[Rfam]
Shown here is a 175-nucleotide RNA sequence from Acinetobacter marinus, a member of the family "Acinetobacter sRNA 28". Pairs were carried over by alignment from the consensus structure, which was predicted with RNAfold.

RNA sequence: AAUGUUGCAUGGCUGACAACGACUGAGGAGGACGUUAUGCUUUUUUCUAUGGAUUACAACUUCAGCUGAUUUUGCAUACGUCUGCUCACGGACAUAUGUUGAAUCACACAUAUGUCCGAAUGCCAAAAAUCAUUGAUCUAGCAUUCGCUAGAUUUUUUUUGCCUAUUUUUUCGAU
Numbered sequence: 001a002a003u004g005u006u007g008c009a010u011g012g013c014u015g016a017c018a019a020c021g022a023c024u025g026a027g028g029a030g031g032a033c034g035u036u037a038u039g040c041u042u043u044u045u046u047c048u049a050u051g052g053a054u055u056a057c058a059a060c061u062u063c064a065g066c067u068g069a070u071u072u073u074g075c076a077u078a079c080g081u082c083u084g085c086u087c088a089c090g091g092a093c094a095u096a097u098g099u100u101g102a103a104u105c106a107c108a109c110a111u112a113u114g115u116c117c118g119a120a121u122g123c124c125a126a127a128a129a130u131c132a133u134u135g136a137u138c139u140a141g142c143a144u145u146c147g148c149u150a151g152a153u154u155u156u157u158u159u160u161g162c163c164u165a166u167u168u169u170u171u172c173g174a175u
Stems, first nucleotide, its partner, number of pairs: 001133001005128002011124003017025002028087003031082005038076003089118010135154008161171001